[Rfam]
RNA sequence: AGCAAAAUGAUCAGUUUUUGGAUCUGAGAGUCAUGUGAAUAUCAUAUUAUGGUUUGUAAAGUUCUUUGAUUGCU
Numbered sequence: 001a002g003c004a005a006a007a008u009g010a011u012c013a014g015u016u017u018u019u020g021g022a023u024c025u026g027a028g029a030g031u032c033a034u035g036u037g038a039a040u041a042u043c044a045u046a047u048u049a050u051g052g053u054u055u056g057u058a059a060a061g062u063u064c065u066u067u068g069a070u071u072g073c074u
Stems, first nucleotide, its partner, number of pairs: 001074005

Shown here is a 74-nucleotide RNA from Elaeis guineensis, a member of the family "Small nucleolar RNA R160".
Rfam 15.1 lists 799 matches to the family in 221 species.
From the family's description: snoR160 is a C/D box small nucleolar RNA, which acts as a methylation guide for 25S ribosomal RNA in plants. snoR160 has been alternatively named snoZ270 in rice.
The base pairs follow the family's consensus structure.